[Rfam]
Rfam assigns this 100-nucleotide RNA sequence from Acer yangbiense to the family "Small nucleolar RNA R30/Z108". snoR30 is a C/D box small nucleolar RNA which acts as a methylation guide for 18S ribosomal RNA in plants. Its family is annotated with nucleolus and RNA processing in the Gene Ontology. The family has 6 seed sequences and 626 matches in Rfam 15.1. A search with the family's covariance model found it, with a score of 86 bits. A reference for the family is Marker et al. (2002), "Experimental RNomics. Identification of 140 Candidates for Small Non-Messenger RNAs in the Plant Arabidopsis thaliana", Curr Biol.

RNA sequence: AGAGGUUACGAUGAGGAUUUACAGCUCCCUCUUCUGAGUAUGGUUGAAGAGAUUUGCUGGCAGAAUCGAACCUAUAAAUAUUACCGCCACCACUGAGUAA
Numbered sequence: 001a002g003a004g005g006u007u008a009c010g011a012u013g014a015g016g017a018u019u020u021a022c023a024g025c026u027c028c029c030u031c032u033u034c035u036g037a038g039u040a041u042g043g044u045u046g047a048a049g050a051g052a053u054u055u056g057c058u059g060g061c062a063g064a065a066u067c068g069a070a071c072c073u074a075u076a077a078a079u080a081u082u083a084c085c086g087c088c089a090c091c092a093c094u095g096a097g098u099a100a
Stems, first nucleotide, its partner, number of pairs: 006100004